[Rfam]
Nucleotides: 098
Base pairs, nucleotide, nucleotide: 018084019083020082022080023079024078025077029047030046031045032044033043034042056074057073058072059071060070061069
Number, partner (000 for none) and nucleotide at each position: 001000c002000a003000a004000u005000c006000a007000a008000a009000u010000a011000a012000a013000u014000g015000u016000g017000a018084u019083g020082c021000c022080u023079a024078u025077a026000u027000a028000u029047a030046g031045c032044c033043a034042a035000a036000a037000u038000a039000a040000g041000g042034u043033u044032g045031g046030c047029u048000g049000u050000c051000u052000c053000u054000a055000c056074c057073c058072a059071g060070u061069a062000c063000c064000g065000u066000a067000a068000a069061u070060a071059c072058u073057g074056g075000a076000c077025u078024a079023u080022a081000a082020g083019c084018a085000a086000a087000a088000g089000c090000g091000c092000u093000c094000a095000g096000u097000g098000a

Shown here is a 98-nucleotide RNA from Secundilactobacillus malefermentans, a member of the family "Purine riboswitch aptamer". Its family is annotated with purine nucleobase biosynthetic process in the Gene Ontology. The match comes from Rfam's covariance-model search (71 bits). The source organism's lineage runs through Bacteria, Bacillati, Bacillota, Bacilli and Secundilactobacillus.